[Rfam]
RNA sequence: GGCACACUUGAUGAACACUAAGGGACUUAAUGCUGAAUAUAUUUGAUGUCUCUACUUAUUUGUUCUGAUGUGC
Numbered sequence: 001g002g003c004a005c006a007c008u009u010g011a012u013g014a015a016c017a018c019u020a021a022g023g024g025a026c027u028u029a030a031u032g033c034u035g036a037a038u039a040u041a042u043u044u045g046a047u048g049u050c051u052c053u054a055c056u057u058a059u060u061u062g063u064u065c066u067g068a069u070g071u072g073c
Base pairs, nucleotide, nucleotide: 002073003072004071005070006069
A member of the RNA family "Small nucleolar RNA SNORD82" from Esox lucius, 73 nucleotides long.
NCBI's taxonomy places the organism under Eukaryota, Metazoa, Teleostomi, Clupeocephala, Esox.
snoRNA U82 or Z25 is found in both humans and mice.
The base pairs follow the family's consensus structure, which was predicted with PFOLD.
Rfam 15.1 lists 649 matches to the family in 590 species.